[Rfam]
RNA sequence: AAGGUACAGUAGGUGAUUGCUUGGGUUUUAAGACCUAAGAGGAAAGUCCGGGCUGCGAUGAAGCGAGGUUCCGUCUAACGGACGGCUGGGGUAACCCAAGGGAUAGUGCAACAGAGAGUAGACAGCCUUUAGAGAUAAAGGUGAUGGUGAAACGGUGGGGUAAGAGCCCACCAGCUUCUUAAGCAAUUAAGAAGGCUAUGUAAACCCAACUUGCAGCAAGAAUGGAUUGGUUUUGCUUCAUAUUUUUACCAUUCGCUAAAGCUUUAUAGCAAUAUAAAGAUUAGAUAAAUAAUCACCCUUAGACAGAACUCGGCUUAUGCUGUACCUUAUCU
Numbered sequence: 001a002a003g004g005u006a007c008a009g010u011a012g013g014u015g016a017u018u019g020c021u022u023g024g025g026u027u028u029u030a031a032g033a034c035c036u037a038a039g040a041g042g043a044a045a046g047u048c049c050g051g052g053c054u055g056c057g058a059u060g061a062a063g064c065g066a067g068g069u070u071c072c073g074u075c076u077a078a079c080g081g082a083c084g085g086c087u088g089g090g091g092u093a094a095c096c097c098a099a100g101g102g103a104u105a106g107u108g109c110a111a112c113a114g115a116g117a118g119u120a121g122a123c124a125g126c127c128u129u130u131a132g133a134g135a136u137a138a139a140g141g142u143g144a145u146g147g148u149g150a151a152a153c154g155g156u157g158g159g160g161u162a163a164g165a166g167c168c169c170a171c172c173a174g175c176u177u178c179u180u181a182a183g184c185a186a187u188u189a190a191g192a193a194g195g196c197u198a199u200g201u202a203a204a205c206c207c208a209a210c211u212u213g214c215a216g217c218a219a220g221a222a223u224g225g226a227u228u229g230g231u232u233u234u235g236c237u238u239c240a241u242a243u244u245u246u247u248a249c250c251a252u253u254c255g256c257u258a259a260a261g262c263u264u265u266a267u268a269g270c271a272a273u274a275u276a277a278a279g280a281u282u283a284g285a286u287a288a289a290u291a292a293u294c295a296c297c298c299u300u301a302g303a304c305a306g307a308a309c310u311c312g313g314c315u316u317a318u319g320c321u322g323u324a325c326c327u328u329a330u331c332u
Stems, first nucleotide, its partner, number of pairs: 001328011012297007020039008044316003048313005053216004066212005071085005086100001087098004101207002106205002108201003123146002125142007154172006174196001175194008220254006262279007
RNA: Bacterial RNase P class A